The record is a 72-nucleotide sequence from Ruminococcaceae bacterium BL-6, which matches "Fluoride riboswitch aptamer (crcB RNA motif)" in Rfam. The base pairs follow the family's consensus structure, which is taken from published work. It scores 39 bits against the family's covariance model. Taxonomically the source falls in Oscillospiraceae (Bacteria, Bacillati, Bacillota, Clostridia).

RNA sequence: UCCUAACAAGGGAAUGAAGUUCUCCCGCGGCAUCACCGGAAACGCUAUCGAGCUGAUGACUUCUGCAGUGGC
Numbered sequence: 001u002c003c004u005a006a007c008a009a010g011g012g013a014a015u016g017a018a019g020u021u022c023u024c025c026c027g028c029g030g031c032a033u034c035a036c037c038g039g040a041a042a043c044g045c046u047a048u049c050g051a052g053c054u055g056a057u058g059a060c061u062u063c064u065g066c067a068g069u070g071g072c
Base pairs, nucleotide, nucleotide: 010026011025012024013023016063017062018061019060020059021058044053045052046051